[Rfam]
RNA: Streptomyces sRNA 4677
RNA sequence: GGAUCCGGUGGGCCCGGACGUGUAACCCGUUCAAGAACCCGGGCUAAAUCCAACCCACCCCACCCCACCGGCUCCCCGUAACUCACAUGGGUGAAGUGUGCCAACUGGGCUGGAUUCCGGGCCGGUUCGCGGGCAUAUGCUCGCCCCACAACACCAGACAUGAGACGGCCCCCGGCGGGACUGCAAUCCCGGUCGAGGGCCUGACCAAGUAGGAAGUAAACGGCUUCCCC
Numbered sequence: 001g002g003a004u005c006c007g008g009u010g011g012g013c014c015c016g017g018a019c020g021u022g023u024a025a026c027c028c029g030u031u032c033a034a035g036a037a038c039c040c041g042g043g044c045u046a047a048a049u050c051c052a053a054c055c056c057a058c059c060c061c062a063c064c065c066c067a068c069c070g071g072c073u074c075c076c077c078g079u080a081a082c083u084c085a086c087a088u089g090g091g092u093g094a095a096g097u098g099u100g101c102c103a104a105c106u107g108g109g110c111u112g113g114a115u116u117c118c119g120g121g122c123c124g125g126u127u128c129g130c131g132g133g134c135a136u137a138u139g140c141u142c143g144c145c146c147c148a149c150a151a152c153a154c155c156a157g158a159c160a161u162g163a164g165a166c167g168g169c170c171c172c173c174g175g176c177g178g179g180a181c182u183g184c185a186a187u188c189c190c191g192g193u194c195g196a197g198g199g200c201c202u203g204a205c206c207a208a209g210u211a212g213g214a215a216g217u218a219a220a221c222g223g224c225u226u227c228c229c230c
Base pairs, nucleotide, nucleotide: 007064008063009062010061079094081092082091083090084089109145111143112142113141167201168200169199170198171197173195174194177190178189179188180187212228213227214226215225216224